A member of the RNA family "M-box riboswitch aptamer (ykoK leader)" from Oscillibacter sp. CAG:155, 159 nucleotides long.
[Rfam]
RNA sequence: UAUUGCGUCCGGUAGGUAAGGCUACCGCAGGGAUAUGGAUCGCUGCCGCAAAGUGAUGGAGACAUCACACGAUGGUUUGAACAGGGCUUGUCGAACAACAAGGCAUGACCUAACGCGAUUUCACCGCCCGGCGAAGCUAAAGCUUGAACGGUUUCAACC
Number, nucleotide and partner (000 for none) at each position: 001u000002a000003u000004u000005g155006c000007g153008u000009c151010c150011g149012g000013u101014a000015g144016g143017u142018a000019a000020g138021g137022c136023u000024a000025c000026c133027g132028c131029a000030g129031g128032g127033a000034u000035a000036u000037g000038g000039a119040u118041c117042g116043c115044u000045g076046c075047c074048g073049c000050a000051a000052a000053g000054u000055g066056a065057u064058g063059g000060a000061g000062a000063c058064a057065u056066c055067a000068c000069a000070c000071g000072a000073u048074g047075g046076u045077u000078u000079g000080a000081a000082c000083a000084g110085g109086g000087c107088u000089u000090g104091u103092c102093g000094a000095a000096c000097a000098a000099c000100a000101a013102g092103g091104c090105a000106u000107g087108a000109c085110c084111u000112a000113a000114c000115g043116c042117g041118a040119u039120u000121u000122c000123a000124c000125c000126g000127c032128c031129c030130g000131g028132c027133g026134a000135a000136g022137c021138u020139a000140a000141a000142g017143c016144u015145u000146g000147a000148a000149c011150g010151g009152u000153u007154u000155c005156a000157a000158c000159c000
The base pairs follow the family's consensus structure.
From the family's description: M-box riboswitch, also know as ykoK leader is described as a metaloregulatory RNA that sense divalent metals and function as a genetic control element of genes related to divalent metal transport in bacteria. It was first reported upstream of the B.subtilis ykoK gene and genes with related functions in other bacteria.